RNA: RAGATH-18 RNA
RNA sequence: UCUGUGGAUCGUUACAUCAAAUGAAAGUAGUUAGUAACAUUGAGUAAACGUUACAACAAAAUCAGACGGGAUGAAGCAGAAA
Numbered sequence: 001u002c003u004g005u006g007g008a009u010c011g012u013u014a015c016a017u018c019a020a021a022u023g024a025a026a027g028u029a030g031u032u033a034g035u036a037a038c039a040u041u042g043a044g045u046a047a048a049c050g051u052u053a054c055a056a057c058a059a060a061a062u063c064a065g066a067c068g069g070g071a072u073g074a075a076g077c078a079g080a081a082a
Stems, first nucleotide, its partner, number of pairs: 001080005009069005022064003030057003034054005